[Rfam]
RNA sequence: UCGGUUCCGUGCGGUUGCCAGACCCCCGACCCGGCAACCGCACGGGCCUCGA
Numbered sequence: 001u002c003g004g005u006u007c008c009g010u011g012c013g014g015u016u017g018c019c020a021g022a023c024c025c026c027c028g029a030c031c032c033g034g035c036a037a038c039c040g041c042a043c044g045g046g047c048c049u050c051g052a
Stems, first nucleotide, its partner, number of pairs: 001051001004048001006046014
Dot-bracket structure: (..(.((((((((((((((.............)))))))))))))).)..).
The record is a 52-nucleotide sequence from Nocardia aurantia, which matches "F6 TB sRNA" in Rfam. On this family, see Arnvig and Young, Mol Microbiol 2009: "Identification of small RNAs in Mycobacterium tuberculosis". The family's RNA type in Rfam is small RNA. It scores 46 bits against the family's covariance model. Pairs were carried over by alignment from the consensus structure, which is taken from published work. The family has 16 seed sequences and 310 matches in Rfam 15.1.